[Rfam]
RNA sequence: CCAUCACUAACACGUGUUUCAAUUAGAACAAACAGAGAGCUUCCAUCACAAACCGACAUUAACCUUGCCGUACACCACCGAUUCCGGUGACAAGAGUCACCGUCGAUAUUCUUUCGUUCAGUAAAUCUUGUGGUUUUUCACCGUUUAACAAAAUUGGAGUCCAUAAGAGGAUAACAGCUAAAGGGAAUUGAUAGUAUGCUUCGGUUCUUCUACUUCUUCUCUUCAAUUAAAACUGCAAAUCACUAGGAUAAUUCCUGAAAAUCUGAUAUAACAUAUG
Numbered sequence: 001c002c003a004u005c006a007c008u009a010a011c012a013c014g015u016g017u018u019u020c021a022a023u024u025a026g027a028a029c030a031a032a033c034a035g036a037g038a039g040c041u042u043c044c045a046u047c048a049c050a051a052a053c054c055g056a057c058a059u060u061a062a063c064c065u066u067g068c069c070g071u072a073c074a075c076c077a078c079c080g081a082u083u084c085c086g087g088u089g090a091c092a093a094g095a096g097u098c099a100c101c102g103u104c105g106a107u108a109u110u111c112u113u114u115c116g117u118u119c120a121g122u123a124a125a126u127c128u129u130g131u132g133g134u135u136u137u138u139c140a141c142c143g144u145u146u147a148a149c150a151a152a153a154u155u156g157g158a159g160u161c162c163a164u165a166a167g168a169g170g171a172u173a174a175c176a177g178c179u180a181a182a183g184g185g186a187a188u189u190g191a192u193a194g195u196a197u198g199c200u201u202c203g204g205u206u207c208u209u210c211u212a213c214u215u216c217u218u219c220u221c222u223u224c225a226a227u228u229a230a231a232a233c234u235g236c237a238a239a240u241c242a243c244u245a246g247g248a249u250a251a252u253u254c255c256u257g258a259a260a261a262u263c264u265g266a267u268a269u270a271a272c273a274u275a276u277g
Stems, first nucleotide, its partner, number of pairs: 014274005022267006034222006051206006069198005079190007086101006111183004116178003126168008136159005143154004244257005